[Rfam]
A member of the RNA family "MIR9563 microRNA precursor family" from Brassica oleracea, 152 nucleotides long.

RNA sequence: GGAAUAUAAGAACCCGUGUCUUAACUUUCAACUAAAAAAGCUAAGAACCGGUUUUUAAAUAAGAGAUUUAAGAACCGGCUCUUAAAUAAGAGAUUUAAAAACCGGUUCUUAGUUUUUUUGAUUAAAAUUUAAGAGACGUGUUCUUAUAUUCC
Number, nucleotide and partner (000 for none) at each position: 001g152002g151003a150004a149005u148006a147007u146008a145009a144010g143011a142012a141013c140014c000015c138016g137017u136018g000019u134020c133021u132022u131023a130024a129025c000026u127027u126028u125029c000030a123031a122032c000033u120034a119035a118036a117037a116038a115039a114040g000041c112042u111043a110044a109045g108046a107047a106048c105049c104050g103051g102052u101053u100054u099055u098056u097057a096058a095059a094060u093061a000062a000063g000064a000065g000066a000067u000068u000069u000070a000071a000072g000073a000074a000075c000076c000077g000078g000079c000080u000081c000082u000083u000084a000085a000086a000087u000088a000089a000090g000091a000092g000093a060094u059095u058096u057097a056098a055099a054100a053101a052102c051103c050104g049105g048106u047107u046108c045109u044110u043111a042112g041113u000114u039115u038116u037117u036118u035119u034120g033121a000122u031123u030124a000125a028126a027127a026128u000129u024130u023131a022132a021133g020134a019135g000136a017137c016138g015139u000140g013141u012142u011143c010144u009145u008146a007147u006148a005149u004150u003151c002152c001
Annotation
Taxonomically the source falls in Brassica oleracea (Eukaryota, Euphyllophyta, Spermatophyta, Brassiceae).